[Rfam]
RNA sequence: GGAUCAAUGAUGACUCCCCACUCACACCAGUAUUCCUAGGAAAACCUGAACAAUAUGAGUGAGAACCCCCUCCUUUCUUGGUUUAACCGGCCUGGAUUC
Numbered sequence: 001g002g003a004u005c006a007a008u009g010a011u012g013a014c015u016c017c018c019c020a021c022u023c024a025c026a027c028c029a030g031u032a033u034u035c036c037u038a039g040g041a042a043a044a045c046c047u048g049a050a051c052a053a054u055a056u057g058a059g060u061g062a063g064a065a066c067c068c069c070c071u072c073c074u075u076u077c078u079u080g081g082u083u084u085a086a087c088c089g090g091c092c093u094g095g096a097u098u099c
Stems, first nucleotide, its partner, number of pairs: 001099005031061005037053001039051001
Dot-bracket structure: (((((.........................(((((.(.(...........).)...))))).................................)))))